[Rfam]
RNA: SAM/SAH riboswitch aptamer
RNA sequence: GAACCGCCACAACGGCUUCCUGGCGUGGCGGGGAUCAUUCAAUGGAGCA
Numbered sequence: 001g002a003a004c005c006g007c008c009a010c011a012a013c014g015g016c017u018u019c020c021u022g023g024c025g026u027g028g029c030g031g032g033g034a035u036c037a038u039u040c041a042a043u044g045g046a047g048c049a
Stems, first nucleotide, its partner, number of pairs: 004031007013022002015048003019045002